[Rfam]
RNA: Glutamine riboswitch aptamer (glnA leader)
RNA sequence: AUCGUUCAUCCCUAGAGGGACGGAAGUAGUCGCAAGAUGAAGGAACGCAUU
Numbered sequence: 001a002u003c004g005u006u007c008a009u010c011c012c013u014a015g016a017g018g019g020a021c022g023g024a025a026g027u028a029g030u031c032g033c034a035a036g037a038u039g040a041a042g043g044a045a046c047g048c049a050u051u
Stems, first nucleotide, its partner, number of pairs: 003047005009020004023048001029038003